[Rfam]
RNA sequence: GGAGUCGGCCGGGCGGCCGCGGUCGGCCUUCGGGCCGGUCGAGGAAAGUCCGGGCUCCACAGGGCAGGGUGCUGGGGAAACCCAGGCGGGGGCGACCUCGCGGAAAGCGCCACAGAGAACAGACCGCCCGCGCGGGCGACCGCGCGAGCAAGGGUGAAACGGUGAGGUAAGAGCUCACCAGCGGACCGGGUGACCGGUCCGGCUCGGCAAGCCCCACCCGGAGCAAGGCCAAGCAGGGAGCGCAGCCGGCAUCGCCGGCGGGAGGGUGGCCCGCCCGAGCUCCCGGGUAGGCCGCACGUGCCGCGUCCUCCGGGACGCGCCGGGGCGCCGACGCGACCUCGGUCGCGGGCGCUCAGAGAGAUGGCCGCCGCCGACCCGCGAGGGUCGGUACAGAACCCGGCUUACAGGCCGACUCCCUGC
Numbered sequence: 001g002g003a004g005u006c007g008g009c010c011g012g013g014c015g016g017c018c019g020c021g022g023u024c025g026g027c028c029u030u031c032g033g034g035c036c037g038g039u040c041g042a043g044g045a046a047a048g049u050c051c052g053g054g055c056u057c058c059a060c061a062g063g064g065c066a067g068g069g070u071g072c073u074g075g076g077g078a079a080a081c082c083c084a085g086g087c088g089g090g091g092g093c094g095a096c097c098u099c100g101c102g103g104a105a106a107g108c109g110c111c112a113c114a115g116a117g118a119a120c121a122g123a124c125c126g127c128c129c130g131c132g133c134g135g136g137c138g139a140c141c142g143c144g145c146g147a148g149c150a151a152g153g154g155u156g157a158a159a160c161g162g163u164g165a166g167g168u169a170a171g172a173g174c175u176c177a178c179c180a181g182c183g184g185a186c187c188g189g190g191u192g193a194c195c196g197g198u199c200c201g202g203c204u205c206g207g208c209a210a211g212c213c214c215c216a217c218c219c220g221g222a223g224c225a226a227g228g229c230c231a232a233g234c235a236g237g238g239a240g241c242g243c244a245g246c247c248g249g250c251a252u253c254g255c256c257g258g259c260g261g262g263a264g265g266g267u268g269g270c271c272c273g274c275c276c277g278a279g280c281u282c283c284c285g286g287g288u289a290g291g292c293c294g295c296a297c298g299u300g301c302c303g304c305g306u307c308c309u310c311c312g313g314g315a316c317g318c319g320c321c322g323g324g325g326c327g328c329c330g331a332c333g334c335g336a337c338c339u340c341g342g343u344c345g346c347g348g349g350c351g352c353u354c355a356g357a358g359a360g361a362u363g364g365c366c367g368c369c370g371c372c373g374a375c376c377c378g379c380g381a382g383g384g385u386c387g388g389u390a391c392a393g394a395a396c397c398c399g400g401c402u403u404a405c406a407g408g409c410c411g412a413c414u415c416c417c418u419g420c
Stems, first nucleotide, its partner, number of pairs: 001416010011405001012369007020041009046403003050400005055223004062272004067219005072086002075083002088099004102214002107212002109208003124153002126149002129146006161179006181203001182201008227293004236284006264276004300352002
RNA: Bacterial RNase P class A
Organism: bacterium HR12